[Rfam]
RNA sequence: AGUUUUGGUAGGCGCCUAGUGGUGGAAUGGUUGGGCUGGAAUCGGAAUUGAGAUGUGAUGUUAACGGGCCAUCGUGCAUCUUUUUUAAAUUUUGAGCAAUUUGAGUACGCUAGUGCCACUAUGCAUGUUUCAUGUAUACAUGUAUGCGCGGUUUCUGUUCUUGUCGUACUUAUAGAUCGCUACGUUAUUUCAAUUUUGAAAAUCUGAGUCCUGGGAGUGCGGAGCCAUGCAUACAUGUACUUUAUUGUUGCAUAGUAUUGCUAGAGUACACUUUCUCCAUGAUUGUCUGUCUUCUUUACACCAGUUCUGUUUUCUGUCUUAACCUCUUCACUAUCAUGGAAAGUUUCUACCAUUACCACACCCACACACGAACAUUAAGGCUAAUCGUUAUUAGUUCAAUCUCCAUAGCCACACUCUUUUUUUCUUCCAAUAUUUUCCGUCGCUUUCCAAGUGACAGAAAAAAAAGGAGUUUGAAUUAGGCUUGCAAAAGGGACAAUAUAUAUGAUACUGUCACUCCUAAUGUCUAAUUUAUCGUCAACUCUGUAAAGGAAGCAAGAAAGAGAAAGGUUGCUGGAAAUAAAAUUUGUACAAAC
Numbered sequence: 001a002g003u004u005u006u007g008g009u010a011g012g013c014g015c016c017u018a019g020u021g022g023u024g025g026a027a028u029g030g031u032u033g034g035g036c037u038g039g040a041a042u043c044g045g046a047a048u049u050g051a052g053a054u055g056u057g058a059u060g061u062u063a064a065c066g067g068g069c070c071a072u073c074g075u076g077c078a079u080c081u082u083u084u085u086u087a088a089a090u091u092u093u094g095a096g097c098a099a100u101u102u103g104a105g106u107a108c109g110c111u112a113g114u115g116c117c118a119c120u121a122u123g124c125a126u127g128u129u130u131c132a133u134g135u136a137u138a139c140a141u142g143u144a145u146g147c148g149c150g151g152u153u154u155c156u157g158u159u160c161u162u163g164u165c166g167u168a169c170u171u172a173u174a175g176a177u178c179g180c181u182a183c184g185u186u187a188u189u190u191c192a193a194u195u196u197u198g199a200a201a202a203u204c205u206g207a208g209u210c211c212u213g214g215g216a217g218u219g220c221g222g223a224g225c226c227a228u229g230c231a232u233a234c235a236u237g238u239a240c241u242u243u244a245u246u247g248u249u250g251c252a253u254a255g256u257a258u259u260g261c262u263a264g265a266g267u268a269c270a271c272u273u274u275c276u277c278c279a280u281g282a283u284u285g286u287c288u289g290u291c292u293u294c295u296u297u298a299c300a301c302c303a304g305u306u307c308u309g310u311u312u313u314c315u316g317u318c319u320u321a322a323c324c325u326c327u328u329c330a331c332u333a334u335c336a337u338g339g340a341a342a343g344u345u346u347c348u349a350c351c352a353u354u355a356c357c358a359c360a361c362c363c364a365c366a367c368a369c370g371a372a373c374a375u376u377a378a379g380g381c382u383a384a385u386c387g388u389u390a391u392u393a394g395u396u397c398a399a400u401c402u403c404c405a406u407a408g409c410c411a412c413a414c415u416c417u418u419u420u421u422u423u424c425u426u427c428c429a430a431u432a433u434u435u436u437c438c439g440u441c442g443c444u445u446u447c448c449a450a451g452u453g454a455c456a457g458a459a460a461a462a463a464a465a466g467g468a469g470u471u472u473g474a475a476u477u478a479g480g481c482u483u484g485c486a487a488a489a490g491g492g493a494c495a496a497u498a499u500a501u502a503u504g505a506u507a508c509u510g511u512c513a514c515u516c517c518u519a520a521u522g523u524c525u526a527a528u529u530u531a532u533c534g535u536c537a538a539c540u541c542u543g544u545a546a547a548g549g550a551a552g553c554a555a556g557a558a559a560g561a562g563a564a565a566g567g568u569u570g571c572u573g574g575a576a577a578u579a580a581a582a583u584u585u586g587u588a589c590a591a592a593c
Base pairs, nucleotide, nucleotide: 006352007351008350009349010348011347012346067117068116069115147229148228150226151225152224157220158219160217161216164214165213166212168209169208170207171206174205175204176203177202380395381394382393383392384391385390433461434460435459436458437457439455441453442452443451444450466542467541468540469539470538471537474529475528476527477526478525479524480523481522492512493511494510495509497507498506499505
RNA: Saccharomyces telomerase, nucleotides 116 to 708
Organism: Saccharomyces x bayanus